Shown here is a 358-nucleotide part of an RNA from an uncultured bacterium, a member of the family "Bacterial small subunit ribosomal RNA". It is one of the family's seed sequences. The base pairs follow the family's consensus structure, which is taken from published work.
RNA sequence: GGCGUAAAGAGCUCGUAGGCGGUUCAACAAGUCGGUCGUGAAAGUUCAGGGCUCAACCCUGAAAUGUCGAUCGAUACUGUUGUGACUAGGAUACGGUAGAGGUGAGUGGAAUUCCGAGUGUAGCGGUGAAAUGCGUAGAUAUUCGGAGGAACACCAAUUGCGAAGGCAGCUCACUGGACCGCUAUCGACGCUGAGGAGCGAAAGCUAGGGGAGCAAACAGGAUUAGAUACCCUGGUAGUCCUAGCUGUAAACGAUGGAUACUAGACGUAGGAACUGGAUUGACGGUUUCUGUGUCGUAGCUAACGCGUUAAGUAUCCCGCCUGGGGAGUACGGUCGCAAGACUAAAACUCAAAGGAAU
Numbered sequence: 001g002g003c004g005u006a007a008a009g010a011g012c013u014c015g016u017a018g019g020c021g022g023u024u025c026a027a028c029a030a031g032u033c034g035g036u037c038g039u040g041a042a043a044g045u046u047c048a049g050g051g052c053u054c055a056a057c058c059c060u061g062a063a064a065u066g067u068c069g070a071u072c073g074a075u076a077c078u079g080u081u082g083u084g085a086c087u088a089g090g091a092u093a094c095g096g097u098a099g100a101g102g103u104g105a106g107u108g109g110a111a112u113u114c115c116g117a118g119u120g121u122a123g124c125g126g127u128g129a130a131a132u133g134c135g136u137a138g139a140u141a142u143u144c145g146g147a148g149g150a151a152c153a154c155c156a157a158u159u160g161c162g163a164a165g166g167c168a169g170c171u172c173a174c175u176g177g178a179c180c181g182c183u184a185u186c187g188a189c190g191c192u193g194a195g196g197a198g199c200g201a202a203a204g205c206u207a208g209g210g211g212a213g214c215a216a217a218c219a220g221g222a223u224u225a226g227a228u229a230c231c232c233u234g235g236u237a238g239u240c241c242u243a244g245c246u247g248u249a250a251a252c253g254a255u256g257g258a259u260a261c262u263a264g265a266c267g268u269a270g271g272a273a274c275u276g277g278a279u280u281g282a283c284g285g286u287u288u289c290u291g292u293g294u295c296g297u298a299g300c301u302a303a304c305g306c307g308u309u310a311a312g313u314a315u316c317c318c319g320c321c322u323g324g325g326g327a328g329u330a331c332g333g334u335c336g337c338a339a340g341a342c343u344a345a346a347a348c349u350c351a352a353a354g355g356a357a358u
Base pairs, nucleotide, nucleotide: 001321002320003319009318011199012198013197014196016193018192019191020190022086023085024084025082026081027080028079030078031077032074033073034072035071036070037069038068045063046062047061048060049059050058051057090186091185092184094181095180096179097178101175102174103173104172105171106170107169108152112148113147114146115145116144117143118142119141123134124133125132160167161166204245205244206243207242208241209240213239214238218234219233220232221231256317257316258315259314260313261312264295265294266293267292268291269290270289271288272287273286274285275284299306300305323350324349325348332343333342334341335340